[Rfam]
RNA sequence: AGCACACACUCUGGAGAGACCGGCCGCCCGCAAGGGUCGGCGCCGGCGCCGAAGGGGCACAAGGCGCAGUCCAGCGCGCCUCCAAACUCUCAGGCAGAAGGACAGAGGGGCGCGA
Numbered sequence: 001a002g003c004a005c006a007c008a009c010u011c012u013g014g015a016g017a018g019a020c021c022g023g024c025c026g027c028c029c030g031c032a033a034g035g036g037u038c039g040g041c042g043c044c045g046g047c048g049c050c051g052a053a054g055g056g057g058c059a060c061a062a063g064g065c066g067c068a069g070u071c072c073a074g075c076g077c078g079c080c081u082c083c084a085a086a087c088u089c090u091c092a093g094g095c096a097g098a099a100g101g102a103c104a105g106a107g108g109g110g111c112g113c114g115a
Stems, first nucleotide, its partner, number of pairs: 007109001009107005020046004048095003051091002055089003062081006
RNA: Glycine riboswitch aptamer
Organism: Pseudoxanthomonas winnipegensis